[Rfam]
RNA sequence: AAGACUAUACUUUCAGGGAUCAUUUCUAUAGUUUUUGACUUGAGAAAUGUGUUUCUAAACUGUUUGGUAUCGCUAACCACGAUGAUGAGAUGUGAUAUUUCCCACUAAGCGCAAAGCGGGCACAGAGAAGUGAUUCAGUUCACACGCUCUCUGCCAUUGAUGACCGUUCUUUACUUCCUUGUGGAGUAAAGGGGUGGGGACUAUGGACAGAGUGGU
Dot-bracket structure: (((.(.(.(((...((((.....))))..))).)..).))).........(...(......).)...........(((((..............(((.((((((((..(((.......((((..(((..((((......))))...)))..)))).........)))..(((((.((......)))))))..)))))))).))).......)))))
This 216-nucleotide RNA from Cyclopterus lumpus belongs to the Rfam family "Small nucleolar RNA U3". Small nucleolar RNAs (snoRNAs) are involved in the processing and modification of rRNA in the nucleolus. NCBI's taxonomy places the organism under Eukaryota, Eumetazoa, Craniata, Actinopterygii, Cyclopterus. A search with the family's covariance model found it, with a score of 155 bits.